The family of this 75-nucleotide RNA sequence from Dasyornis broadbenti is "Small nucleolar RNA SNORD19". Its Rfam clan is "SNORD19 clan". Gene Ontology terms of the family: nucleolus and RNA processing. It is annotated as a C/D-box small nucleolar RNA. It scores 41 bits against the family's covariance model. Lineage of the source: Eukaryota > Opisthokonta > Saurischia > Neoaves > Dasyornis. For this family Rfam cites "RNomics: an experimental approach that identifies 201 candidates for novel, small, non-messenger RNAs in mouse" (Huttenhofer et al., EMBO J, 2001).

RNA sequence: GAGAAAUGAGGAUACACACUUUGGUCUUACUUCUGUAGUGAAGACUUCAGAUCCAACUCUGAUCUCACACUGACA
Number, nucleotide and partner (000 for none) at each position: 001g066002a065003g064004a063005a000006a000007u000008g000009a000010g000011g000012a000013u000014a000015c000016a000017c000018a000019c000020u000021u000022u000023g000024g000025u000026c000027u000028u000029a000030c000031u000032u000033c000034u000035g000036u000037a000038g000039u000040g000041a000042a000043g000044a000045c000046u000047u000048c000049a000050g000051a000052u000053c000054c000055a000056a000057c000058u000059c000060u000061g000062a000063u004064c003065u002066c001067a000068c000069a000070c000071u000072g000073a000074c000075a000